[Rfam]
RNA sequence: GGGGGUGCAUUGGUUUCGACGGGGGUUGUGAAGUCGCCUGGCGCAUGCCGAGGGGGUAGCUUUCCUCGUAAAUCCAGCUGCAAAACUCUAGUUGCCAACGACGACAACUACGCUCCGGUCGCUCUCGCAGCCUAAAAACUGCGGUGCGUGACCUUCUGCCGACUUAGGCGGAGCCUCGAAACUGCUUGUGUCCAUGCUCGCAGCGUAGAGUCAUUAUCAUGGAAUCGCGCUGGGCGGCUGCCUGUCAGUCCGGCACAAGAACACAACAGGCUGGUCCUUGGAUGCGCUUUGCACGCCGUGCUGUCCCGGGAUGAGAUUCAACGGUGAGCUAAGCAUGUAGUGCUGGGGAUGGAGUGCCUUCGGACGGCGGUUCAAUUCCGCCCACCUCCACCA
Dot-bracket structure: (((((((............(((((((..(...(((.(((((((((((([[[[[..((((((..]]]]].......))))))..........................................(.((((.(...........).)))).)........................(((.(...........[[.............).)))...........]]...(.(((((((....[[[[[...))))))).)..........]]]]]..(((((.((((.(((...[[..[[[)))..)))).)))))..........]]]..]]...)))))...))))))))))..)..)))))))...(((((.......))))))))))))....
Numbered sequence: 001g002g003g004g005g006u007g008c009a010u011u012g013g014u015u016u017c018g019a020c021g022g023g024g025g026u027u028g029u030g031a032a033g034u035c036g037c038c039u040g041g042c043g044c045a046u047g048c049c050g051a052g053g054g055g056g057u058a059g060c061u062u063u064c065c066u067c068g069u070a071a072a073u074c075c076a077g078c079u080g081c082a083a084a085a086c087u088c089u090a091g092u093u094g095c096c097a098a099c100g101a102c103g104a105c106a107a108c109u110a111c112g113c114u115c116c117g118g119u120c121g122c123u124c125u126c127g128c129a130g131c132c133u134a135a136a137a138a139c140u141g142c143g144g145u146g147c148g149u150g151a152c153c154u155u156c157u158g159c160c161g162a163c164u165u166a167g168g169c170g171g172a173g174c175c176u177c178g179a180a181a182c183u184g185c186u187u188g189u190g191u192c193c194a195u196g197c198u199c200g201c202a203g204c205g206u207a208g209a210g211u212c213a214u215u216a217u218c219a220u221g222g223a224a225u226c227g228c229g230c231u232g233g234g235c236g237g238c239u240g241c242c243u244g245u246c247a248g249u250c251c252g253g254c255a256c257a258a259g260a261a262c263a264c265a266a267c268a269g270g271c272u273g274g275u276c277c278u279u280g281g282a283u284g285c286g287c288u289u290u291g292c293a294c295g296c297c298g299u300g301c302u303g304u305c306c307c308g309g310g311a312u313g314a315g316a317u318u319c320a321a322c323g324g325u326g327a328g329c330u331a332a333g334c335a336u337g338u339a340g341u342g343c344u345g346g347g348g349a350u351g352g353a354g355u356g357c358c359u360u361c362g363g364a365c366g367g368c369g370g371u372u373c374a375a376u377u378c379c380g381c382c383c384a385c386c387u388c389c390a391c392c393a
Stems, first nucleotide, its partner, number of pairs: 001389007020362007029353001033350003037347007044337005049068005056081006124150001126148004131143001175210003179206001191223002227256001229254007240271005274312005280306004285300003291329002295325003366382005
Background: This 393-nucleotide RNA sequence belongs to the Rfam family "transfer-messenger RNA". It scores 194 bits against the family's covariance model. Rfam's curators write: Bacterial tmRNA, also known as 10Sa RNA or SsrA, is named for its dual tRNA and mRNA-like properties. A reference for the family is Williams and Bartel (1996), "Phylogenetic analysis of tmRNA secondary structure", RNA. The family's RNA type in Rfam is non-coding RNA gene.